[Rfam]
RNA sequence: AAAUGUGUGAAGGAGUAGUUUUACUGAAUCAGUGGAAACAAGGAAACACUUGAUUUGGUAAAACUAUAAA
Dot-bracket structure: ...............((((((..((...((((((............))).)))...))..))))))....

A member of the RNA family "Cyano-1 RNA", 70 nucleotides long. It is annotated as a small RNA.